RNA sequence: CUCUGUUUCGCAAUGAUUCAGGGCUGAAGGAG
Numbered sequence: 001c002u003c004u005g006u007u008u009c010g011c012a013a014u015g016a017u018u019c020a021g022g023g024c025u026g027a028a029g030g031a032g
Stems, first nucleotide, its partner, number of pairs: 001023005008016003
L31-Firmicutes ribosomal protein leader: a 32-nucleotide RNA sequence from Heyndrickxia ginsengihumi. Rfam classes the family as a cis-regulatory leader. The base pairs follow the family's consensus structure, which is taken from published work. On this family, see Eckert and Weinberg, BMC Microbiol 2020: "Discovery of 20 novel ribosomal leader candidates in bacteria and archaea". Taxonomically the source falls in Heyndrickxia ginsengihumi (Bacteria, Bacillota, Bacilli, Caryophanales).